[Rfam]
Rfam assigns this 139-nucleotide sequence from Myripristis murdjan to the family "Small nucleolar RNA SNORA29". Clan: SNORA20 clan. Rfam links the family to the GO terms nucleolus and RNA processing. The family's RNA type in Rfam is H/ACA-box small nucleolar RNA. The literature on the family includes a 2001 paper in EMBO J by Huttenhofer et al., "RNomics: an experimental approach that identifies 201 candidates for novel, small, non-messenger RNAs in mouse". ACA29 is a member of the H/ACA class of snoRNA that guide the sites of modification of uridines to pseudouridines.
RNA sequence: AAUCCCAUUUUAGUACCGUCCCGUCACUUUCCUUUGCACGGACGGCUAUGCUAAUGGGAUAGAAAGAACCCUGUCAUGAUCUGAAGGUGUGGCUGCUGCACUGUGCGCCCCGCUUAAUAAAAUGACAGGACAUUGCCAU
Number, nucleotide and partner (000 for none) at each position: 001a000002a000003u000004c058005c057006c056007a055008u000009u000010u000011u000012a000013g000014u000015a000016c045017c044018g043019u042020c041021c040022c000023g000024u000025c000026a000027c000028u000029u000030u000031c000032c000033u000034u000035u000036g000037c000038a000039c000040g021041g020042a019043c018044g017045g016046c000047u000048a000049u000050g000051c000052u000053a000054a000055u007056g006057g005058g004059a000060u000061a000062g000063a000064a000065a000066g000067a000068a000069c000070c000071c000072u000073g126074u125075c124076a123077u000078g000079a000080u000081c000082u000083g000084a000085a000086g000087g000088u000089g000090u000091g114092g113093c112094u000095g000096c000097u000098g000099c000100a000101c000102u000103g000104u000105g000106c000107g000108c000109c000110c000111c000112g093113c092114u091115u000116a000117a000118u000119a000120a000121a000122a000123u076124g075125a074126c073127a000128g000129g000130a000131c000132a000133u000134u000135g000136c000137c000138a000139u000